[Rfam]
RNA: Small nucleolar RNA Z199
RNA sequence: AAAUCAAAUGAUGAGAAAAAAACUGCAACAAUAUGAUGGACAAGUUCCGUGAUUCUUAGUAUUUAAGUCUCUGAUGAUU
Numbered sequence: 001a002a003a004u005c006a007a008a009u010g011a012u013g014a015g016a017a018a019a020a021a022a023c024u025g026c027a028a029c030a031a032u033a034u035g036a037u038g039g040a041c042a043a044g045u046u047c048c049g050u051g052a053u054u055c056u057u058a059g060u061a062u063u064u065a066a067g068u069c070u071c072u073g074a075u076g077a078u079u
Base pairs, nucleotide, nucleotide: 001079002078004077005076006075038048039047040046